[Rfam]
RNA sequence: UGCGAAAAAGGCAAACCCGGCGAAAGUCGGGGACGCAAAGCUACAGACCUAAGGGGUCCGGCGAGGAUCCUAUCGGUGGCUGAGUUACCGAAU
Numbered sequence: 001u002g003c004g005a006a007a008a009a010g011g012c013a014a015a016c017c018c019g020g021c022g023a024a025a026g027u028c029g030g031g032g033a034c035g036c037a038a039a040g041c042u043a044c045a046g047a048c049c050u051a052a053g054g055g056g057u058c059c060g061g062c063g064a065g066g067a068u069c070c071u072a073u074c075g076g077u078g079g080c081u082g083a084g085u086u087a088c089c090g091a092a093u
Base pairs, nucleotide, nucleotide: 003090004089011036012035016031017030018029019028020027021026034079039086040085041084042083044082045081046080047077048076049075